[Rfam]
Nucleotides: 076
Stems, first nucleotide, its partner, number of pairs: 001075004
Number, partner (000 for none) and nucleotide at each position: 001075c002074u003073a004072c005000g006000g007000g008000g009000a010000u011000g012000a013000u014000a015000c016000u017000a018000g019000g020000a021000a022000u023000u024000g025000a026000a027000c028000u029000c030000u031000c032000u033000c034000u035000u036000u037000c038000u039000g040000a041000u042000g043000g044000g045000u046000u047000g048000g049000u050000g051000g052000a053000g054000a055000a056000a057000a058000c059000g060000u061000a062000a063000a064000g065000a066000u067000u068000c069000u070000g071000a072004g073003u074002a075001g076000c